[Rfam]
RNA sequence: CUCGCAAUAGCUCAGCUGGAAGAGCAUGGGACUGUAAUGUGAUUUCUACUCUCAGUAUCUGAGAGAAUCUGAACAUGUUAAUCGAGCCUGUCACAAGGUUCAAGCCGACAUCCUGGGGUCGGGUGUUCGAUUCACCCUUGCGAGA
Numbered sequence: 001c002u003c004g005c006a007a008u009a010g011c012u013c014a015g016c017u018g019g020a021a022g023a024g025c026a027u028g029g030g031a032c033u034g035u036a037a038u039g040u041g042a043u044u045u046c047u048a049c050u051c052u053c054a055g056u057a058u059c060u061g062a063g064a065g066a067a068u069c070u071g072a073a074c075a076u077g078u079u080a081a082u083c084g085a086g087c088c089u090g091u092c093a094c095a096a097g098g099u100u101c102a103a104g105c106c107g108a109c110a111u112c113c114u115g116g117g118g119u120c121g122g123g124u125g126u127u128c129g130a131u132u133c134a135c136c137c138u139u140g141c142g143a144g145a
Base pairs, nucleotide, nucleotide: 001144002143003142004141005140006139007138010025011024012023013022027115028114029113030112031111121137122136123135124134125133